The family of this 89-nucleotide sequence from Lentibacillus sp. JNUCC-1 is "c-di-GMP-I riboswitch aptamer". Taxonomically the source falls in Lentibacillus (Bacteria, Bacilli, Caryophanales, Bacillaceae). Pairs were carried over by alignment from the consensus structure, which is taken from published work. The match comes from Rfam's covariance-model search (68 bits). GEMM was predicted in a large-scale screen for bacterial structured RNA regulatory elements. Genes associated with GEMM are involved in a diverse array of functions, including chemotaxis regulation, signal transduction, secretion and chitin. Its family is annotated with cyclic-di-GMP binding in the Gene Ontology.
[Rfam]
RNA sequence: CCCUGACAAGGGCAAACUCAUUGAAAAAUGACGACGCAAAAUCACAGGUCUAAUGUUUAACUUUACACGAUGACGGCUGGAUUUCCAGG
Numbered sequence: 001c002c003c004u005g006a007c008a009a010g011g012g013c014a015a016a017c018u019c020a021u022u023g024a025a026a027a028a029u030g031a032c033g034a035c036g037c038a039a040a041a042u043c044a045c046a047g048g049u050c051u052a053a054u055g056u057u058u059a060a061c062u063u064u065a066c067a068c069g070a071u072g073a074c075g076g077c078u079g080g081a082u083u084u085c086c087a088g089g
Stems, first nucleotide, its partner, number of pairs: 012037002018031005040083004045079003048074003055068002058065001